[Rfam]
RNA sequence: GGCUUCAACAUCCCCGCCGGUUGGGCGCGGCUUUUCUGGCAGUUGGUUGUAGCAAGAAAAGACGCUCAGUGAAUCGGCUGUAGCC
Numbered sequence: 001g002g003c004u005u006c007a008a009c010a011u012c013c014c015c016g017c018c019g020g021u022u023g024g025g026c027g028c029g030g031c032u033u034u035u036c037u038g039g040c041a042g043u044u045g046g047u048u049g050u051a052g053c054a055a056g057a058a059a060a061g062a063c064g065c066u067c068a069g070u071g072a073a074u075c076g077g078c079u080g081u082a083g084c085c
Stems, first nucleotide, its partner, number of pairs: 001085004006080002013071001014069001016078007023070001025067001027065003031061007
RNA: nadA riboswitch